[Rfam]
RNA: tRNA
RNA sequence: GCUUGGUUGAUCUAGUGGCAAGAUUCACGCUUCCCAAGCGUGCCACCCGGGUUCGAUUCCCGGACCUAGCA
Numbered sequence: 001g002c003u004u005g006g007u008u009g010a011u012c013u014a015g016u017g018g019c020a021a022g023a024u025u026c027a028c029g030c031u032u033c034c035c036a037a038g039c040g041u042g043c044c045a046c047c048c049g050g051g052u053u054c055g056a057u058u059c060c061c062g063g064a065c066c067u068a069g070c071a
Base pairs, nucleotide, nucleotide: 001070002069003068005066006065007064010024011023012022013021026042027041028040029039030038047063048062049061050060051059